Nucleotides: 103
Stems, first nucleotide, its partner, number of pairs: 007090004011053004016047001017030004037046003059084003065078004
Number, partner (000 for none) and nucleotide at each position: 001000g002000a003000u004000g005000u006000c007090u008089c009088c010087g011053a012052g013051g014050g015000g016047u017030g018029u019028c020027c021000u022000g023000u024000u025000a026000u027020g028019g029018g030017c031000u032000g033000a034000g035000a036000u037046g038045g039044c040000g041000u042000a043000a044039g045038c046037c047016g048000a049000a050014c051013c052012c053011u054000u055000u056000g057000a058000a059084c060083c061082u062000g063000a064000u065078c066077u067076g068075g069000g070000u071000c072000a073000u074000g075068c076067c077066a078065g079000c080000g081000a082061a083060g084059g085000g086000a087010c088009g089008g090007g091000u092000c093000g094000g095000c096000a097000g098000a099000u100000a101000u102000u103000u